Overview
Shown here is a 110-nucleotide RNA from Clostridium pasteurianum, a member of the family "SAM riboswitch aptamer (S box leader)". Rfam links the family to the GO term regulation of gene expression.
[Rfam]
RNA sequence: UUCUUAUCAAGAGAGAUGGAGGGACUGGCCCAAUGAAAUCCAACAACCGGCAUUUAUAUUUAAAUGUGACGGUGUUAAUUCCAGCAGAAAUUUUUUCUGAAAGAUAAGAA
Dot-bracket structure: ((((((((....(.(((...(((.[[[[)))......))))((((.((.(((((........)))))...))))))...(]]]]((((((...))))))..)))))))))
The source organism's lineage runs through Bacteria, Bacillota, Clostridiaceae, Clostridium and Clostridium pasteurianum.